[Rfam]
The family of this 82-nucleotide RNA sequence from Saccharothrix espanaensis is "ZMP/ZTP riboswitch aptamer (pfl RNA motif)". It scores 58 bits against the family's covariance model. The organism belongs to Saccharothrix espanaensis, within Bacteria. Rfam links the family to the GO terms one-carbon metabolic process and regulation of purine nucleotide biosynthetic process.
RNA sequence: UCGGCGGCGCACGACUGGCGUCGGGUGGGCCAACCACCGGGGAGUGCGCAGCGAGUCGGCAUCGCACGCCUGGGUGCCCUCA
Numbered sequence: 001u002c003g004g005c006g007g008c009g010c011a012c013g014a015c016u017g018g019c020g021u022c023g024g025g026u027g028g029g030c031c032a033a034c035c036a037c038c039g040g041g042g043a044g045u046g047c048g049c050a051g052c053g054a055g056u057c058g059g060c061a062u063c064g065c066a067c068g069c070c071u072g073g074g075u076g077c078c079c080u081c082a
Base pairs, nucleotide, nucleotide: 004052005051007049008048009047010046011045012044015041016040017070018069019068020067021066025037026036027035028034059077060076061075062074063073